[Rfam]
RNA: ASpks TB sRNA
RNA sequence: CUUCAGCGACCCCAGCCACAGGGGGCGGUCCUUGGUGUGGUGCCGGCCGUAGGUGGCGAGAAGUGCCUGGGCCUC
Numbered sequence: 001c002u003u004c005a006g007c008g009a010c011c012c013c014a015g016c017c018a019c020a021g022g023g024g025g026c027g028g029u030c031c032u033u034g035g036u037g038u039g040g041u042g043c044c045g046g047c048c049g050u051a052g053g054u055g056g057c058g059a060g061a062a063g064u065g066c067c068u069g070g071g072c073c074u075c
Stems, first nucleotide, its partner, number of pairs: 016024002031071003038065002043060001047056003